The record is an 84-nucleotide RNA from Penelope pileata, which matches "mir-184 microRNA precursor family" in Rfam. The base pairs follow the family's consensus structure, which was predicted with PFOLD.
RNA sequence: CCGCUCUCGCGUCCUUAUCACUUUUCCAGCCCAGCUUCUACACUGCGACUGUUGGACGGAGAACUGAUAAGGGUGCGCGGGCGG
Numbered sequence: 001c002c003g004c005u006c007u008c009g010c011g012u013c014c015u016u017a018u019c020a021c022u023u024u025u026c027c028a029g030c031c032c033a034g035c036u037u038c039u040a041c042a043c044u045g046c047g048a049c050u051g052u053u054g055g056a057c058g059g060a061g062a063a064c065u066g067a068u069a070a071g072g073g074u075g076c077g078c079g080g081g082c083g084g
Base pairs, nucleotide, nucleotide: 012073013072014071015070016069017068018067019066020065022063023062024061025060026059027058030055031054